[Rfam]
RNA sequence: GCUAGCUCGGGCCGGGAGGAACCGCAGCCGGAGGAAGCGGAGGAGGAAGAAGAGAAGGAAGAGGAGAGGGGCCCGCGGUGGCGACUCGGCGCUCGGAAGCCGGGCUCAUGGACCGGUGAGGCGGCGGUGUGCGCAGACAGUGCUUCAGCCGCGCGCGCGCCCCAGGCCCUGGCCCGGGCCUCGGCUCCCGGAGGAAGAGGAGCCCGCCAACGCGCGGAGGAGAGCGGGCCGUCCCGCAGCCCGAGCCGGAGAGGGAGCGCAAGCCGCGCCGGCCCGAGUCCGGCCUCCGAAACCAUGAACUUUUUCCUC
Numbered sequence: 001g002c003u004a005g006c007u008c009g010g011g012c013c014g015g016g017a018g019g020a021a022c023c024g025c026a027g028c029c030g031g032a033g034g035a036a037g038c039g040g041a042g043g044a045g046g047a048a049g050a051a052g053a054g055a056a057g058g059a060a061g062a063g064g065a066g067a068g069g070g071g072c073c074c075g076c077g078g079u080g081g082c083g084a085c086u087c088g089g090c091g092c093u094c095g096g097a098a099g100c101c102g103g104g105c106u107c108a109u110g111g112a113c114c115g116g117u118g119a120g121g122c123g124g125c126g127g128u129g130u131g132c133g134c135a136g137a138c139a140g141u142g143c144u145u146c147a148g149c150c151g152c153g154c155g156c157g158c159g160c161c162c163c164a165g166g167c168c169c170u171g172g173c174c175c176g177g178g179c180c181u182c183g184g185c186u187c188c189c190g191g192a193g194g195a196a197g198a199g200g201a202g203c204c205c206g207c208c209a210a211c212g213c214g215c216g217g218a219g220g221a222g223a224g225c226g227g228g229c230c231g232u233c234c235c236g237c238a239g240c241c242c243g244a245g246c247c248g249g250a251g252a253g254g255g256a257g258c259g260c261a262a263g264c265c266g267c268g269c270c271g272g273c274c275c276g277a278g279u280c281c282g283g284c285c286u287c288c289g290a291a292a293c294c295a296u297g298a299a300c301u302u303u304u305u306c307c308u309c
Stems, first nucleotide, its partner, number of pairs: 003035001006033003010029003013024003048308002051305002054302002057294002061287004070275002073272002075269002078267005089260006101243006109236003115162002118160001120158001121156003124152004128147002131143004165233003171230006179220004184215001186212001190207001191205001193203001
The family of this 309-nucleotide sequence from Microcebus murinus is "Vascular endothelial growth factor (VEGF) IRES A". For this family Rfam cites "Two independent internal ribosome entry sites are involved in translation initiation of vascular endothelial growth factor mRNA" (Huez et al., Mol Cell Biol, 1998). Gene Ontology term of the family: ribosome binding. The family's RNA type in Rfam is internal ribosome entry site. The source organism's lineage runs through Eukaryota, Craniata, Tetrapoda, Lemuriformes and Microcebus. A search with the family's covariance model found it, with a score of 260 bits. Pairs were carried over by alignment from the consensus structure, which is taken from published work.